RNA: Z30 small nucleolar RNA
RNA sequence: AUGCGAUGAUGAGUGAAGUCUAGUCGGACCUGGUAUUGCCAUUGUGUUAGCUCUGUCUCUGACCAGGGCAUGACCCCUUAAUCUUCUCUCUGAGCUC
Number, nucleotide and partner (000 for none) at each position: 001a096002u000003g095004c094005g000006a000007u000008g000009a000010u000011g000012a000013g000014u000015g000016a000017a000018g000019u000020c000021u000022a000023g000024u000025c000026g000027g000028a000029c000030c000031u000032g000033g000034u000035a000036u000037u000038g057039c000040c055041a054042u000043u000044g000045u000046g000047u000048u000049a000050g000051c000052u000053c000054u041055g040056u000057c038058u000059c000060u000061g000062a000063c000064c000065a000066g000067g000068g000069c000070a000071u000072g000073a000074c000075c000076c000077c000078u000079u000080a000081a000082u000083c000084u000085u000086c000087u000088c000089u000090c000091u000092g000093a000094g004095c003096u001097c000